RNA sequence: AAAAAUGCCCAUCAAAGGCGUAGUGCCCCAUCCGGGAACAACUUUACCGUAUUCUGAAUUU
Numbered sequence: 001a002a003a004a005a006u007g008c009c010c011a012u013c014a015a016a017g018g019c020g021u022a023g024u025g026c027c028c029c030a031u032c033c034g035g036g037a038a039c040a041a042c043u044u045u046a047c048c049g050u051a052u053u054c055u056g057a058a059u060u061u
Stems, first nucleotide, its partner, number of pairs: 017045002020042002023039002026036002
Rfam assigns this 61-nucleotide sequence from Leptolyngbya sp. NIES-3755 to the family "Plastid-psbN 5UTR RNA". Pairs were carried over by alignment from the consensus structure, which was predicted with LocARNA. The literature on the family includes a 2023 paper in Plant Commun by Richter et al., "Retrograde signaling in plants: A critical review focusing on the GUN pathway and beyond". It scores 54 bits against the family's covariance model.